[Rfam]
RNA: UnaL2 LINE 3' element
RNA sequence: UGCUCACACUGUGUGAGUCGCUCUGGAUGAGAGCGUCUGCUAAAUGGCGUAAU
Numbered sequence: 001u002g003c004u005c006a007c008a009c010u011g012u013g014u015g016a017g018u019c020g021c022u023c024u025g026g027a028u029g030a031g032a033g034c035g036u037c038u039g040c041u042a043a044a045u046g047g048c049g050u051a052a053u
Base pairs, nucleotide, nucleotide: 012042013040014039015038019035020034021033022032023031024030